[Rfam]
RNA sequence: UGGCCUACCUCGGGGUGCCCUUAUGGCUGAGACGCGCAAGCGGACCCGUUGAACCUGAUCCGGCUCACACCGGCGGAGGGAAGGUCGCGCACUCCUUC
Dot-bracket structure: ......((((((((.((((.....)))......((....)))..)))).....(((...((((......))))...)))..)))).............
RNA: TPP riboswitch aptamer (THI element)